[Rfam]
Nucleotides: 071
Stems, first nucleotide, its partner, number of pairs: 001039007020032003046057004
Number, partner (000 for none) and nucleotide at each position: 001039g002038c003037c004036g005035c006034u007033c008000g009000a010000a011000a012000c013000u014000u015000u016000g017000c018000a019000c020032a021031c022030c023000u024000c025000u026000a027000c028000g029000u030022g031021g032020u033007g034006g035005g036004c037003g038002g039001c040000a041000g042000g043000c044000a045000a046057c047056a048055c049054a050000g051000u052000g053000a054049u055048g056047u057046g058000g059000c060000u061000a062000a063000g064000a065000u066000g067000c068000g069000g070000a071000g